[Rfam]
RNA sequence: CAGUACACUGGUAGCUUUUGAGCCAGGGGCGGUAGCUUU
Number, nucleotide and partner (000 for none) at each position: 001c000002a000003g000004u000005a000006c000007a000008c026009u025010g024011g023012u022013a000014g000015c000016u000017u000018u000019u000020g000021a000022g012023c011024c010025a009026g008027g000028g000029g000030c000031g000032g000033u000034a000035g000036c000037u000038u000039u000